Small nucleolar RNA SNORD103/SNORD85: an 84-nucleotide RNA sequence from Alligator mississippiensis. Gene Ontology terms of the family: nucleolus and RNA processing. The family's RNA type in Rfam is C/D-box small nucleolar RNA. The pairing is the family consensus, mapped onto this sequence.
[Rfam]
RNA sequence: UCUGGCAGCGGUGACACAUUUGCCCUCAUUGCGAACACUGUUCAGUAAUGAGCCUCGCCAUGUGCUCAGUCCAGCUGAGCCAGA
Numbered sequence: 001u002c003u004g005g006c007a008g009c010g011g012u013g014a015c016a017c018a019u020u021u022g023c024c025c026u027c028a029u030u031g032c033g034a035a036c037a038c039u040g041u042u043c044a045g046u047a048a049u050g051a052g053c054c055u056c057g058c059c060a061u062g063u064g065c066u067c068a069g070u071c072c073a074g075c076u077g078a079g080c081c082a083g084a
Stems, first nucleotide, its partner, number of pairs: 001084006